Rfam assigns this 176-nucleotide RNA sequence from Umbelopsis vinacea to the family "U11 spliceosomal RNA". Rfam classes the family as a spliceosomal small nuclear RNA. Rfam links the family to the GO terms mRNA 5'-splice site recognition, pre-mRNA 5'-splice site binding and U11 snRNP. It scores 60 bits against the family's covariance model. The source organism's lineage runs through Eukaryota, Mucoromycotina, Umbelopsidomycetes, Umbelopsidaceae and Umbelopsis.
[Rfam]
RNA sequence: AAAAAGGGCGCGUCACUAGCUCAGAAAUGGGCUUUCUUACUGUGACAGAAUCCAUGGACCCCUUUACUCGUUAAGUAAAGAUCUAUUGGCUUUCUGGGGGAUGGUUUAUCAAGACAUCUCUAGCGCAUAAUUUUUGUCUCCUGGCGGCACGGGCUUCGCUUCAAGCUUGGCUGCCU
Numbered sequence: 001a002a003a004a005a006g007g008g009c010g011c012g013u014c015a016c017u018a019g020c021u022c023a024g025a026a027a028u029g030g031g032c033u034u035u036c037u038u039a040c041u042g043u044g045a046c047a048g049a050a051u052c053c054a055u056g057g058a059c060c061c062c063u064u065u066a067c068u069c070g071u072u073a074a075g076u077a078a079a080g081a082u083c084u085a086u087u088g089g090c091u092u093u094c095u096g097g098g099g100g101a102u103g104g105u106u107u108a109u110c111a112a113g114a115c116a117u118c119u120c121u122a123g124c125g126c127a128u129a130a131u132u133u134u135u136g137u138c139u140c141c142u143g144g145c146g147g148c149a150c151g152g153g154c155u156u157c158g159c160u161u162c163a164a165g166c167u168u169g170g171c172u173g174c175c176u
Stems, first nucleotide, its partner, number of pairs: 008126004013045004046096005053089001097121007144174004150169004155165002158162001